[Rfam]
RNA sequence: UCCGACUCUGGAGAGUGGUUUGUCCGCCAACUCUUGCCCCUACCGGGAUUUUGCCGGUUUUUUUAGGGGCUCGAGCCGGAUGCGGACCAACCCACCGAAGGGGCAGCCCAGCAAGAUGUCGCGCGCUAUCAUCUGCGCGUAACAGGCUAGGGCAAACUCUCAGGUUCAGGACAGAGGGGCGGUG
Numbered sequence: 001u002c003c004g005a006c007u008c009u010g011g012a013g014a015g016u017g018g019u020u021u022g023u024c025c026g027c028c029a030a031c032u033c034u035u036g037c038c039c040c041u042a043c044c045g046g047g048a049u050u051u052u053g054c055c056g057g058u059u060u061u062u063u064u065a066g067g068g069g070c071u072c073g074a075g076c077c078g079g080a081u082g083c084g085g086a087c088c089a090a091c092c093c094a095c096c097g098a099a100g101g102g103g104c105a106g107c108c109c110a111g112c113a114a115g116a117u118g119u120c121g122c123g124c125g126c127u128a129u130c131a132u133c134u135g136c137g138c139g140u141a142a143c144a145g146g147c148u149a150g151g152g153c154a155a156a157c158u159c160u161c162a163g164g165u166u167c168a169g170g171a172c173a174g175a176g177g178g179g180c181g182g183u184g
Stems, first nucleotide, its partner, number of pairs: 003179001006176005017092004094165003097161002101159003107152002
Overview:
A member of the RNA family "Glycine riboswitch aptamer" from Thiorhodovibrio frisius, 184 nucleotides long. A search with the family's covariance model found it, with a score of 36 bits. Taxonomically the source falls in Thiorhodovibrio (Bacteria, Pseudomonadati, Pseudomonadota, Chromatiales). The base pairs follow the family's consensus structure.